[Rfam]
RNA sequence: UUCAACAUGAUGAACGAUAUAUUUGCUACUUCAGACGGGAGCUCUGCUUCCGAAUGAGACUUUAUAAAUAUCACCAAGAUCUCUGAGAUGAA
Numbered sequence: 001u002u003c004a005a006c007a008u009g010a011u012g013a014a015c016g017a018u019a020u021a022u023u024u025g026c027u028a029c030u031u032c033a034g035a036c037g038g039g040a041g042c043u044c045u046g047c048u049u050c051c052g053a054a055u056g057a058g059a060c061u062u063u064a065u066a067a068a069u070a071u072c073a074c075c076a077a078g079a080u081c082u083c084u085g086a087g088a089u090g091a092a
Stems, first nucleotide, its partner, number of pairs: 001092004
This 92-nucleotide RNA sequence from Ambrosiozyma monospora belongs to the Rfam family "Small nucleolar RNA SNORD24". A search with the family's covariance model found it, with a score of 42 bits. Rfam links the family to the GO terms nucleolus and RNA processing. It is annotated as a C/D-box small nucleolar RNA. On this family, see Nicoloso et al., J Mol Biol 1996: "Intron-encoded, antisense small nucleolar RNAs: the characterization of nine novel species points to their direct role as guides for the 2'-O-ribose methylation of rRNAs". Rfam 15.1 lists 2,843 matches to the family in 1,188 species.